[Rfam]
RNA: Bacterial RNase P class A
RNA sequence: UGGGUCGACAAGACGGUCGCGUCGCGGAAAACCGCGCCGAGGAACGUCCGGGCUCCACAGGGGAGAACGGUGGGUAACGCCCACCCGGGGUAACCCGCGAGCAAGUGCAACAGAAAGUAAACCGCCAGGCAACUGGUAAGGGUGAAAGGGUGGUGUAAGAGACCACCAGCGUUUAUGGUGACAUAAGCGGCUAGGUAAACCUCGUUCGGAGCAAGACCAUGCAGCAGACAACGACGCGCCCCGCUGAGUCUGCGGGUAGGUUGCUAGAGCACGCAGGUAACUGCGCGCCGAGAUAGAUGGCCGUCACGAUGCAAAUCGCACAGAACCCGGCGUAUCAGUCGGCCCAUUCC
Numbered sequence: 001u002g003g004g005u006c007g008a009c010a011a012g013a014c015g016g017u018c019g020c021g022u023c024g025c026g027g028a029a030a031a032c033c034g035c036g037c038c039g040a041g042g043a044a045c046g047u048c049c050g051g052g053c054u055c056c057a058c059a060g061g062g063g064a065g066a067a068c069g070g071u072g073g074g075u076a077a078c079g080c081c082c083a084c085c086c087g088g089g090g091u092a093a094c095c096c097g098c099g100a101g102c103a104a105g106u107g108c109a110a111c112a113g114a115a116a117g118u119a120a121a122c123c124g125c126c127a128g129g130c131a132a133c134u135g136g137u138a139a140g141g142g143u144g145a146a147a148g149g150g151u152g153g154u155g156u157a158a159g160a161g162a163c164c165a166c167c168a169g170c171g172u173u174u175a176u177g178g179u180g181a182c183a184u185a186a187g188c189g190g191c192u193a194g195g196u197a198a199a200c201c202u203c204g205u206u207c208g209g210a211g212c213a214a215g216a217c218c219a220u221g222c223a224g225c226a227g228a229c230a231a232c233g234a235c236g237c238g239c240c241c242c243g244c245u246g247a248g249u250c251u252g253c254g255g256g257u258a259g260g261u262u263g264c265u266a267g268a269g270c271a272c273g274c275a276g277g278u279a280a281c282u283g284c285g286c287g288c289c290g291a292g293a294u295a296g297a298u299g300g301c302c303g304u305c306a307c308g309a310u311g312c313a314a315a316u317c318g319c320a321c322a323g324a325a326c327c328c329g330g331c332g333u334a335u336c337a338g339u340c341g342g343c344c345c346a347u348u349c350c
Stems, first nucleotide, its partner, number of pairs: 001346009011335001012305007020039002023036005044333003048330005053211004060241003065207005070084005085099001086097004100202002105200002107196002122141002124137005149167006169191001170189008215262004224253006232246002235243002269288002272285005